[Rfam]
RNA sequence: GGGUCCGGAGGUAGCGUUUCACUAUUUCCGGAGGACAGAGGAUGGUCGGGCCGCCAUCC
Numbered sequence: 001g002g003g004u005c006c007g008g009a010g011g012u013a014g015c016g017u018u019u020c021a022c023u024a025u026u027u028c029c030g031g032a033g034g035a036c037a038g039a040g041g042a043u044g045g046u047c048g049g050g051c052c053g054c055c056a057u058c059c
Stems, first nucleotide, its partner, number of pairs: 005031010040059007
The family of this 59-nucleotide RNA is "nhaA-I RNA".
Acidobacteria, Alphaproteobacteria, Betaproteobacteria and Gammaproteobacteria, Verrucomicrobia, cand. division NC10.
By type it is a riboswitch.